[Rfam]
RNA sequence: AGCUCCUUUAAUGUUAGUCCAGUGAGGCUAAGAAGGAAUCACGAAAACGCCGCUCGUCGUUUUCAUGACUUUAGGUAACGUAUACCCUUCUGCCCUUUGGACAGAAGGGUUUUUAUA
Dot-bracket structure: ...((((((....((((((......)))))))))))).(((.(((((((.(....).))))))).))).............(.(((((((((.((...)).))))))))).).....

Shown here is a 117-nucleotide RNA from Halalkalibacterium halodurans, a member of the family "PyrR binding site". By type it is a cis-regulatory element. This family represents the PyrR binding site and terminator structure. Taxonomically the source falls in Halalkalibacterium halodurans (Bacteria, Bacillota, Bacilli, Caryophanales).